[Rfam]
Shown here is a 599-nucleotide part of an RNA from Theileria parva, a member of the family "Eukaryotic large subunit ribosomal RNA". For this family Rfam cites "Crystal structure of the ribosome at 5.5 A resolution" (Yusupov et al., Science, 2001). Gene Ontology terms of the family: structural constituent of ribosome and ribosome.
RNA sequence: AUCAGCGGGGAAAGAAGACCCUGUUGAGCUUCACUCUAGUCCGGCUUUGUGAAACGACUUGAGGGGUGUAGGAUAAGUGGGAGCUCCGGCGACAGUGAAAUACCACUACUCUUGAUGUUGUUUUACUUAUUCCGUAGUAUUAAGACUUGGCUUCGCCAUGUUUUUGCACAAGGCUCUGCUGAUUAACGCGGAAGACAUAGCCAGGUGGGGAGUUUGGCUGGGGCGGUACAUCUGUUAAAAGAUAACACAGGUGUCCCAAGGCGAACUCAAUGAGGACAGAAAUCUCAUGUUGACCAAAAGGGGAAAAGUUCGCUUGAUUUUGAUUUUCAGUACAAAUACAAACUGUGAAAGCAUGGCCUAUCGAUCCUUUGAGUCUGUAAGAUAUACAGCUAGAGGUGUCAGAAAAGUUACCACAGGGAUAACUGGCUUGUGGCAGCCAAGCGUUCAUAGCGACGUUGCUUUUUGAUCCUUCGAUGUCGGCUCUUCCUAUCAUUGAGAUGCAGAAGUCUCAAAGUGUCGGAUUGUUCACCCGCUAAUAGGGAACGUGAGCUGGGUUUAGACCGUCGUGAGACAGGUUAGUUUUACCCUACUGAUGCACC
Numbered sequence: 001a002u003c004a005g006c007g008g009g010g011a012a013a014g015a016a017g018a019c020c021c022u023g024u025u026g027a028g029c030u031u032c033a034c035u036c037u038a039g040u041c042c043g044g045c046u047u048u049g050u051g052a053a054a055c056g057a058c059u060u061g062a063g064g065g066g067u068g069u070a071g072g073a074u075a076a077g078u079g080g081g082a083g084c085u086c087c088g089g090c091g092a093c094a095g096u097g098a099a100a101u102a103c104c105a106c107u108a109c110u111c112u113u114g115a116u117g118u119u120g121u122u123u124u125a126c127u128u129a130u131u132c133c134g135u136a137g138u139a140u141u142a143a144g145a146c147u148u149g150g151c152u153u154c155g156c157c158a159u160g161u162u163u164u165u166g167c168a169c170a171a172g173g174c175u176c177u178g179c180u181g182a183u184u185a186a187c188g189c190g191g192a193a194g195a196c197a198u199a200g201c202c203a204g205g206u207g208g209g210g211a212g213u214u215u216g217g218c219u220g221g222g223g224c225g226g227u228a229c230a231u232c233u234g235u236u237a238a239a240a241g242a243u244a245a246c247a248c249a250g251g252u253g254u255c256c257c258a259a260g261g262c263g264a265a266c267u268c269a270a271u272g273a274g275g276a277c278a279g280a281a282a283u284c285u286c287a288u289g290u291u292g293a294c295c296a297a298a299a300g301g302g303g304a305a306a307a308g309u310u311c312g313c314u315u316g317a318u319u320u321u322g323a324u325u326u327u328c329a330g331u332a333c334a335a336a337u338a339c340a341a342a343c344u345g346u347g348a349a350a351g352c353a354u355g356g357c358c359u360a361u362c363g364a365u366c367c368u369u370u371g372a373g374u375c376u377g378u379a380a381g382a383u384a385u386a387c388a389g390c391u392a393g394a395g396g397u398g399u400c401a402g403a404a405a406a407g408u409u410a411c412c413a414c415a416g417g418g419a420u421a422a423c424u425g426g427c428u429u430g431u432g433g434c435a436g437c438c439a440a441g442c443g444u445u446c447a448u449a450g451c452g453a454c455g456u457u458g459c460u461u462u463u464u465g466a467u468c469c470u471u472c473g474a475u476g477u478c479g480g481c482u483c484u485u486c487c488u489a490u491c492a493u494u495g496a497g498a499u500g501c502a503g504a505a506g507u508c509u510c511a512a513a514g515u516g517u518c519g520g521a522u523u524g525u526u527c528a529c530c531c532g533c534u535a536a537u538a539g540g541g542a543a544c545g546u547g548a549g550c551u552g553g554g555u556u557u558a559g560a561c562c563g564u565c566g567u568g569a570g571a572c573a574g575g576u577u578a579g580u581u582u583u584a585c586c587c588u589a590c591u592g593a594u595g596c597a598c599c
Stems, first nucleotide, its partner, number of pairs: 001594005008588003012583002020417004025413002027409005033213004040205002043202004049126010059115007076107005083090002130193005140186004148158004172180003216229001217227003230252006255356002261313006267293002270288006294303002318342003323337004344353003367395005375389004426467001428465001430464001432460006441451002478553001479551004483545001484542005491516002494511006518532003522528001559577004563572003